Source information
The family of this 212-nucleotide sequence from Strigamia maritima is "Small nucleolar RNA U3". The family is grouped with related families in Rfam's "U3 clan". Gene Ontology terms of the family: nucleolus and RNA processing. Rfam describes the family as follows. Small nucleolar RNAs (snoRNAs) are involved in the processing and modification of rRNA in the nucleolus. There are two main classes of snoRNAs: the box C/D class, and the box H/ACA class. U3 snoRNA is a member of the box C/D class. A reference for the family is Zwieb (1997), "The uRNA database", Nucleic Acids Res. Pairs were carried over by alignment from the consensus structure, which is taken from published work. Rfam classes the family as a C/D-box small nucleolar RNA.
[Rfam]
RNA sequence: AAGAUCAUACUUCACAGGAUCAUUUCUAAAGUAUGUAUCGCCCAUUCUCUAUCCAAGAGAUGGAACACCCGAAACCAUGAGGACGAGACACAACGUUUCCUCUUGAGCGUGAAGCCGCGUUGUUUUCCGAUUUAUCGGGUAAACUUCGCAUUGAUGACCGCUCUUUGCGACCUACGGGCUGCUAAAGAGGGAGGAAACGUAUUCUGAGUGGU
Numbered sequence: 001a002a003g004a005u006c007a008u009a010c011u012u013c014a015c016a017g018g019a020u021c022a023u024u025u026c027u028a029a030a031g032u033a034u035g036u037a038u039c040g041c042c043c044a045u046u047c048u049c050u051a052u053c054c055a056a057g058a059g060a061u062g063g064a065a066c067a068c069c070c071g072a073a074a075c076c077a078u079g080a081g082g083a084c085g086a087g088a089c090a091c092a093a094c095g096u097u098u099c100c101u102c103u104u105g106a107g108c109g110u111g112a113a114g115c116c117g118c119g120u121u122g123u124u125u126u127c128c129g130a131u132u133u134a135u136c137g138g139g140u141a142a143a144c145u146u147c148g149c150a151u152u153g154a155u156g157a158c159c160g161c162u163c164u165u166u167g168c169g170a171c172c173u174a175c176g177g178g179c180u181g182c183u184a185a186a187g188a189g190g191g192a193g194g195a196a197a198c199g200u201a202u203u204c205u206g207a208g209u210g211g212u
Stems, first nucleotide, its partner, number of pairs: 003039003006035006016027004049063005074212005093200012107161003117149003122144004126139005164186002167182003171178002